[Rfam]
RNA sequence: AGCGGCAUGGAUGCCGCUGGUUCCACGCAGGAACAAGUUUGCUCUGCAAACUUGCAGCUCAAGAAUGUACAUGGAUGUACAUUCUUGAGCGAGG
Numbered sequence: 001a002g003c004g005g006c007a008u009g010g011a012u013g014c015c016g017c018u019g020g021u022u023c024c025a026c027g028c029a030g031g032a033a034c035a036a037g038u039u040u041g042c043u044c045u046g047c048a049a050a051c052u053u054g055c056a057g058c059u060c061a062a063g064a065a066u067g068u069a070c071a072u073g074g075a076u077g078u079a080c081a082u083u084c085u086u087g088a089g090c091g092a093g094g
Stems, first nucleotide, its partner, number of pairs: 001018006034054009057090014
RNA: TD-2 RNA
Organism: Treponema vincentii